Record summary:
Rfam assigns this 52-nucleotide RNA from Phaeobacter inhibens to the family "ffh sRNA". Pairs were carried over by alignment from the consensus structure, which is taken from published work.
RNA sequence: AUUGCCGGGGAUCGCCCUCCACCAGCGUGUUACGCCCGUGGGGGUGAUUGCG
Numbered sequence: 001a002u003u004g005c006c007g008g009g010g011a012u013c014g015c016c017c018u019c020c021a022c023c024a025g026c027g028u029g030u031u032a033c034g035c036c037c038g039u040g041g042g043g044g045u046g047a048u049u050g051c052g
Base pairs, nucleotide, nucleotide: 016044017043018042019041020040021039022038025035026034027033028032
Dot-bracket structure: ...............(((((((..((((...))))..)))))))........